Overview:
The family of this 151-nucleotide RNA from Tersicoccus phoenicis is "c-di-AMP riboswitch aptamer (ydaO/yuaA leader)". Gene Ontology terms of the family: regulation of gene expression and cyclic-di-AMP binding.
[Rfam]
RNA sequence: GGAACCGGUCCGUUCACUUCAUUUCACUGGCAGGGACGGGGGAACCAAUUCCGGUCUCCUUCGAGGCCUUGGGGUCAAGCAUCCGAUCGCGGAUGCCGGGUGCUCCCACCCGAACCCGACAGCUCACCCCGUAGACAAAGGGAGAGGUAGA
Numbered sequence: 001g002g003a004a005c006c007g008g009u010c011c012g013u014u015c016a017c018u019u020c021a022u023u024u025c026a027c028u029g030g031c032a033g034g035g036a037c038g039g040g041g042g043a044a045c046c047a048a049u050u051c052c053g054g055u056c057u058c059c060u061u062c063g064a065g066g067c068c069u070u071g072g073g074g075u076c077a078a079g080c081a082u083c084c085g086a087u088c089g090c091g092g093a094u095g096c097c098g099g100g101u102g103c104u105c106c107c108a109c110c111c112g113a114a115c116c117c118g119a120c121a122g123c124u125c126a127c128c129c130c131g132u133a134g135a136c137a138a139a140g141g142g143a144g145a146g147g148u149a150g151a
Base pairs, nucleotide, nucleotide: 005034006033036132037131038130039129040128041127046071047070072117073116074115080095081094082093083092098111099110100109101108
Record summary
It scores 61 bits against the family's covariance model. Lineage of the source: Bacteria > Bacillati > Actinomycetota > Micrococcales > Tersicoccus.